[Rfam]
RNA: Purine riboswitch aptamer
Organism: Bacillus sp. J14TS2
RNA sequence: CCUAAGCAACAAGCAAGGCCUCAUAUAUAAUGGGGAUAUGGCCCAUACGUUUCUACCUGAUCACCGUAAAUGAUCAGACUAUGAGGAAGUGGAACUUUGGG
Number, nucleotide and partner (000 for none) at each position: 001c000002c000003u000004a000005a000006g000007c000008a000009a000010c000011a000012a000013g000014c000015a000016a000017g000018g000019c086020c085021u084022c083023a082024u081025a080026u000027a000028u000029a000030a046031u045032g044033g043034g042035g000036a000037u000038a000039u000040g000041g000042c034043c033044c032045a031046u030047a000048c000049g000050u000051u000052u000053c000054u000055a000056c000057c077058u076059g075060a074061u073062c072063a071064c000065c000066g000067u000068a000069a000070a000071u063072g062073a061074u060075c059076a058077g057078a000079c000080u025081a024082u023083g022084a021085g020086g019087a000088a000089g000090u000091g000092g000093a000094a000095c000096u000097u000098u000099g000100g000101g000